[Rfam]
RNA sequence: GUGGGUGCAAUGAUUAUAAACAAUUCCUCGUUCUGAAUGCUAUAGCCAUGGCAUGACAGACACUUUUACACCCAUAGAAUAUGAGCACC
Numbered sequence: 001g002u003g004g005g006u007g008c009a010a011u012g013a014u015u016a017u018a019a020a021c022a023a024u025u026c027c028u029c030g031u032u033c034u035g036a037a038u039g040c041u042a043u044a045g046c047c048a049u050g051g052c053a054u055g056a057c058a059g060a061c062a063c064u065u066u067u068a069c070a071c072c073c074a075u076a077g078a079a080u081a082u083g084a085g086c087a088c089c
Stems, first nucleotide, its partner, number of pairs: 003089002006087002
RNA: Small nucleolar RNA snoR8a
Organism: Rhododendron williamsianum